[Rfam]
Notes:
This 64-nucleotide RNA sequence from Tupaia belangeri belongs to the Rfam family "mir-191 microRNA precursor family". The literature on the family includes a 2004 paper in Proc Natl Acad Sci U S A by Kim et al., "Identification of many microRNAs that copurify with polyribosomes in mammalian neurons". Lineage of the source: Eukaryota > Bilateria > Tetrapoda > Tupaia > Tupaia belangeri. The family's consensus secondary structure was predicted with RNAalifold. Gene Ontology terms of the family: miRNA-mediated post-transcriptional gene silencing and RISC complex. It is one of the family's seed sequences.
RNA sequence: CAACGGAAUCCCAAAAGCAGCUGUUGUCUCCAGAGCAUUCCAGCUGCGCUUGGAUUUCGUUCCC
Numbered sequence: 001c002a003a004c005g006g007a008a009u010c011c012c013a014a015a016a017g018c019a020g021c022u023g024u025u026g027u028c029u030c031c032a033g034a035g036c037a038u039u040c041c042a043g044c045u046g047c048g049c050u051u052g053g054a055u056u057u058c059g060u061u062c063c064c
Stems, first nucleotide, its partner, number of pairs: 003060009013051002017047007